[Rfam]
RNA sequence: AAGUGGACUAGGUCGGGCGGUUAGGCCCCGCUCGCCACCUGCAGUAUGGUCUUCAGCAGGGACCGAAGCCCGGUCGCGUCUGGCCCGCCCAGUGUGGGCCCCGGGAGCCAACGUAGAAACCUCGUCCCACGAGGGCAGCGGUUCGCGUUCCAGCCUCUGCAGGGAGGUAUGCGGCGCGAUUGACCGCAGGUAAUCCGUCAGGCACGGAAGUGAGCAGCGGGCCUGCAGACAGCUGUCGCCCGUGGGGCCGCGGGGUGGAGGAGGCAACCGGGAUUCCCCAUGCUGGAACGGCCAGGCAACGCCGGGGUCCACCC
Numbered sequence: 001a002a003g004u005g006g007a008c009u010a011g012g013u014c015g016g017g018c019g020g021u022u023a024g025g026c027c028c029c030g031c032u033c034g035c036c037a038c039c040u041g042c043a044g045u046a047u048g049g050u051c052u053u054c055a056g057c058a059g060g061g062a063c064c065g066a067a068g069c070c071c072g073g074u075c076g077c078g079u080c081u082g083g084c085c086c087g088c089c090c091a092g093u094g095u096g097g098g099c100c101c102c103g104g105g106a107g108c109c110a111a112c113g114u115a116g117a118a119a120c121c122u123c124g125u126c127c128c129a130c131g132a133g134g135g136c137a138g139c140g141g142u143u144c145g146c147g148u149u150c151c152a153g154c155c156u157c158u159g160c161a162g163g164g165a166g167g168u169a170u171g172c173g174g175c176g177c178g179a180u181u182g183a184c185c186g187c188a189g190g191u192a193a194u195c196c197g198u199c200a201g202g203c204a205c206g207g208a209a210g211u212g213a214g215c216a217g218c219g220g221g222c223c224u225g226c227a228g229a230c231a232g233c234u235g236u237c238g239c240c241c242g243u244g245g246g247g248c249c250g251c252g253g254g255g256u257g258g259a260g261g262a263g264g265c266a267a268c269c270g271g272g273a274u275u276c277c278c279c280a281u282g283c284u285g286g287a288a289c290g291g292c293c294a295g296g297c298a299a300c301g302c303c304g305g306g307g308u309c310c311a312c313c314c
Base pairs, nucleotide, nucleotide: 003312004311005310006309007308008307009306011064012063013062014061015033016032017031018030019029020028038060039059040058041057042056044054070305071304072303073302074301078297079296080295081294082292084290089286090285091284092283093282094281095280096279097278098277100272101271102270103269104268107265108264109263112260114258119256120255121254122253123252124251125250126246127245128244129243130242131241133239134237135236136235137234138233140230141181143179144178145177146176147175148173150171153168154167155166156165157164158163184228186226187225188224189223190222194221195220196219197218198217203212204211205210
Dot-bracket structure: ..(((((((.((((((((((.......))))))....(((((.(.........).))))))))).....(((((...(((((.(....((((((((((.(((((..(((..(.(....(((((((((((((.((((((.((.((((((.(..((((((....))))))..).).))))).)..(.(((((...(((((....(((....)))....)))))))))).).)..))))).).))))))...))))))).).)..)))..)))))....))))))))))...).).))))...))))))))))))..
Description
Archaeal signal recognition particle RNA: a 314-nucleotide RNA sequence from Halosegnis rubeus. By type it is a non-coding RNA gene. Taxonomically the source falls in Halosegnis (Archaea, Methanobacteriota, Halobacteriales, Natronomonadaceae). It scores 185 bits against the family's covariance model.